Alphaproteobacterial ar14: a 128-nucleotide sequence from Rhizobium sp. LC145. Taxonomically the source falls in Rhizobium (Bacteria, Pseudomonadati, Alphaproteobacteria, Hyphomicrobiales). Gene Ontology term of the family: biological process involved in symbiotic interaction. On this family, see Robledo et al., Environ Microbiol 2017: "A conserved alpha-proteobacterial small RNA contributes to osmoadaptation and symbiotic efficiency of rhizobia on legume roots". The match comes from Rfam's covariance-model search (106 bits).
[Rfam]
RNA sequence: GUGUUCGCGAAGAACCUACUCCUCCUCCCAGGGUUUUUCGCGGGGAACAGCGGCUCUCCUCCUCCCAUGCCGCUGUUCGGACAGUUUGAAAAAGCCUGCCGCACCUCCUCCCGCGGCAGGCUUUUUCA
Numbered sequence: 001g002u003g004u005u006c007g008c009g010a011a012g013a014a015c016c017u018a019c020u021c022c023u024c025c026u027c028c029c030a031g032g033g034u035u036u037u038u039c040g041c042g043g044g045g046a047a048c049a050g051c052g053g054c055u056c057u058c059c060u061c062c063u064c065c066c067a068u069g070c071c072g073c074u075g076u077u078c079g080g081a082c083a084g085u086u087u088g089a090a091a092a093a094g095c096c097u098g099c100c101g102c103a104c105c106u107c108c109u110c111c112c113g114c115g116g117c118a119g120g121c122u123u124u125u126u127c128a
Stems, first nucleotide, its partner, number of pairs: 007041003011037007045078010092123011